[Rfam]
RNA sequence: AUUCUUUGAGGUGGACAAUUUCGUGGCAUCCACACGCCGAUGGUUAGACAGGGGCAACCCGAGAGAUGCAGGGGCACGCCACGCCUGCCAAGGAAU
Numbered sequence: 001a002u003u004c005u006u007u008g009a010g011g012u013g014g015a016c017a018a019u020u021u022c023g024u025g026g027c028a029u030c031c032a033c034a035c036g037c038c039g040a041u042g043g044u045u046a047g048a049c050a051g052g053g054g055c056a057a058c059c060c061g062a063g064a065g066a067u068g069c070a071g072g073g074g075c076a077c078g079c080c081a082c083g084c085c086u087g088c089c090a091a092g093g094a095a096u
Base pairs, nucleotide, nucleotide: 001096002095003094004093005092006091007090008089011033012032013031014030015029025079035063036055037054038053068088069087070086071085072084